RNA sequence: UGACGGGGGCCCGCACAAGCGGCGGAGCAUGUGGAUUAAUUCGAUGCAACGCGAAGAACCUUACCUGGGUUUGACAUGCACAGGACGCGUCUAGAGAUAGGCGUUCCCUUGUGGCCUGUGUGCAGGUGGUGCAUGGCUGUCGUCAGCUCGUGUCGUGAGAUGUUGGGUUAAGUCCCGCAACGAGCGCAACCCUUGUCUCAUGUUGCCAGCACGUAAUGGUGGGGACUCGUGAGAGACUGCCGGGGUCAACUCGGAGGAAGGUGGGGAUGACGUCAAGUCAUCAUGCCCCUUAUGUCCAGGGCUUCACACAUGCUACAAUGGCCGGUACAAAGGGCUGCGAUGCCGCGAGGUUAAGCGAAUCCUUAAAAGCCGGUCUCAGUUCGGAUCGGGGUCUGCAACUCGACCCCGUGAAGUCGGAGUCGCUAGUAAUCGCAGAUCAGCAACGCUGCGGUGAAUACGUUCCCGGGCCUUGUACACACCGCCCGUCACGUCAUGAAAGUCGGUAACACCCGAAGCCAGUGGCCUAACCCUCGGGAGGGAGCUGUCGAAGGUGGGAUCGGCGAUUGGGACGAAGUCGUAACAAGG
Numbered sequence: 001u002g003a004c005g006g007g008g009g010c011c012c013g014c015a016c017a018a019g020c021g022g023c024g025g026a027g028c029a030u031g032u033g034g035a036u037u038a039a040u041u042c043g044a045u046g047c048a049a050c051g052c053g054a055a056g057a058a059c060c061u062u063a064c065c066u067g068g069g070u071u072u073g074a075c076a077u078g079c080a081c082a083g084g085a086c087g088c089g090u091c092u093a094g095a096g097a098u099a100g101g102c103g104u105u106c107c108c109u110u111g112u113g114g115c116c117u118g119u120g121u122g123c124a125g126g127u128g129g130u131g132c133a134u135g136g137c138u139g140u141c142g143u144c145a146g147c148u149c150g151u152g153u154c155g156u157g158a159g160a161u162g163u164u165g166g167g168u169u170a171a172g173u174c175c176c177g178c179a180a181c182g183a184g185c186g187c188a189a190c191c192c193u194u195g196u197c198u199c200a201u202g203u204u205g206c207c208a209g210c211a212c213g214u215a216a217u218g219g220u221g222g223g224g225a226c227u228c229g230u231g232a233g234a235g236a237c238u239g240c241c242g243g244g245g246u247c248a249a250c251u252c253g254g255a256g257g258a259a260g261g262u263g264g265g266g267a268u269g270a271c272g273u274c275a276a277g278u279c280a281u282c283a284u285g286c287c288c289c290u291u292a293u294g295u296c297c298a299g300g301g302c303u304u305c306a307c308a309c310a311u312g313c314u315a316c317a318a319u320g321g322c323c324g325g326u327a328c329a330a331a332g333g334g335c336u337g338c339g340a341u342g343c344c345g346c347g348a349g350g351u352u353a354a355g356c357g358a359a360u361c362c363u364u365a366a367a368a369g370c371c372g373g374u375c376u377c378a379g380u381u382c383g384g385a386u387c388g389g390g391g392u393c394u395g396c397a398a399c400u401c402g403a404c405c406c407c408g409u410g411a412a413g414u415c416g417g418a419g420u421c422g423c424u425a426g427u428a429a430u431c432g433c434a435g436a437u438c439a440g441c442a443a444c445g446c447u448g449c450g451g452u453g454a455a456u457a458c459g460u461u462c463c464c465g466g467g468c469c470u471u472g473u474a475c476a477c478a479c480c481g482c483c484c485g486u487c488a489c490g491u492c493a494u495g496a497a498a499g500u501c502g503g504u505a506a507c508a509c510c511c512g513a514a515g516c517c518a519g520u521g522g523c524c525u526a527a528c529c530c531u532c533g534g535g536a537g538g539g540a541g542c543u544g545u546c547g548a549a550g551g552u553g554g555g556a557u558c559g560g561c562g563a564u565u566g567g568g569a570c571g572a573a574g575u576c577g578u579a580a581c582a583a584g585g
Base pairs, nucleotide, nucleotide: 001476002475003473004472005471007470008469009468010467011466012465013464015460016459019423020422021421022420023419024316026314027313028312029311030310031309032308033307034305035304040055041054042053043052064300065299066298067297068296069295070294077122078121080119081118082117083116084115087104088103089102090101091100092099093098107114108113125289126288128287129286130285131284134283135282136278137277138276139274141272142271146185147184148183149182150181151180152161153160154159164177165176166175167174191266192265193264194263196234197233198232199231200230201229202228206223207222210221211220212219237257238256240254241253242252243251244250320375321374322373323372324371325370326369332363333362334361337356338355342351343350344349382413387408388407389406390405391404392403393402429452430451431450432449433448434447435446479584481581484577485576489571490570491569492568494566495565496564499561500560501559502558503557504556507553508552509551510550515546517544518543519542520541523539524538525537528535529534
The record is a 585-nucleotide part of an RNA from Mycobacterium tuberculosis, which matches "Bacterial small subunit ribosomal RNA" in Rfam. Rfam's curators put it in the seed alignment. Taxonomically the source falls in Mycobacterium tuberculosis variant bovis BCG (Bacteria, Mycobacteriales, Mycobacteriaceae, Mycobacterium tuberculosis).